Rfam assigns this 108-nucleotide RNA sequence from Methylobrevis pamukkalensis to the family "EcpR1". Rfam's curators write: Perviously named SmelC291, SmrC10, or Sra33. According to its overproduction phenotype it was renamed Elongated Cell Phenotype RNA1. Induced by stress,EcpR1 negatively regulates cell cycle master regulatory genes dnaA and gcrA at post-transcriptional level by base pairing between its strongly conserved GC-rich loop and the target mRNAs. It's regulation is hfq-independent but requires RNase E to regulate dnaA. The family's RNA type in Rfam is small RNA. The family's consensus secondary structure was predicted with WAR.
[Rfam]
RNA sequence: AAACCCUGGUGUGUUCGGGUCCGCCGCAUCUCCCGGAUACAUGAGGGCCGAAUGGUCGGUCGUGGAUAGAGUGGCCUCCUCAGUGACCCACGGCCGACCAUUCUCCUU
Numbered sequence: 001a002a003a004c005c006c007u008g009g010u011g012u013g014u015u016c017g018g019g020u021c022c023g024c025c026g027c028a029u030c031u032c033c034c035g036g037a038u039a040c041a042u043g044a045g046g047g048c049c050g051a052a053u054g055g056u057c058g059g060u061c062g063u064g065g066a067u068a069g070a071g072u073g074g075c076c077u078c079c080u081c082a083g084u085g086a087c088c089c090a091c092g093g094c095c096g097a098c099c100a101u102u103c104u105c106c107u108u
Stems, first nucleotide, its partner, number of pairs: 004047004008040001014037006050103011